[Rfam]
RNA sequence: GAGACGAAACGGCAAACUUGCCUAAAGGCAAGGACGCAAAGCUAAAGGGUCUAACGUUCCGCAAGCAGCGCUACCCGCGCAGGAGCUAUCGACAGCCUGGCUACCGAA
Numbered sequence: 001g002a003g004a005c006g007a008a009a010c011g012g013c014a015a016a017c018u019u020g021c022c023u024a025a026a027g028g029c030a031a032g033g034a035c036g037c038a039a040a041g042c043u044a045a046a047g048g049g050u051c052u053a054a055c056g057u058u059c060c061g062c063a064a065g066c067a068g069c070g071c072u073a074c075c076c077g078c079g080c081a082g083g084a085g086c087u088a089u090c091g092a093c094a095g096c097c098u099g100g101c102u103a104c105c106g107a108a
Stems, first nucleotide, its partner, number of pairs: 012037002017032006040102004046098003049093003056086004

This 108-nucleotide RNA from Paenibacillus sabuli belongs to the Rfam family "c-di-GMP-I riboswitch aptamer". Lineage of the source: Bacteria > Bacillati > Bacillota > Caryophanales > Paenibacillus. GEMM was predicted in a large-scale screen for bacterial structured RNA regulatory elements. Gene Ontology term of the family: cyclic-di-GMP binding. The match comes from Rfam's covariance-model search (62 bits). The family's consensus secondary structure is taken from published work.